[Rfam]
This 104-nucleotide sequence from Glaciihabitans tibetensis belongs to the Rfam family "mraW RNA". The family's consensus secondary structure is taken from published work. A search with the family's covariance model found it, with a score of 52 bits. By type it is a cis-regulatory element.
RNA sequence: UUUAGCGCCUAGGCGCUGACUCCCAGCCGUUCUCUCGACCUGACAUCACUUCCCCGGUGCCAGGAAAGGAAUGGAUGGGGAUCAGCGUUUAGGGGUAGCCCCGA
Numbered sequence: 001u002u003u004a005g006c007g008c009c010u011a012g013g014c015g016c017u018g019a020c021u022c023c024c025a026g027c028c029g030u031u032c033u034c035u036c037g038a039c040c041u042g043a044c045a046u047c048a049c050u051u052c053c054c055c056g057g058u059g060c061c062a063g064g065a066a067a068g069g070a071a072u073g074g075a076u077g078g079g080g081a082u083c084a085g086c087g088u089u090u091a092g093g094g095g096u097a098g099c100c101c102c103g104a
Stems, first nucleotide, its partner, number of pairs: 010091007018083002021080005027074007039064004044059003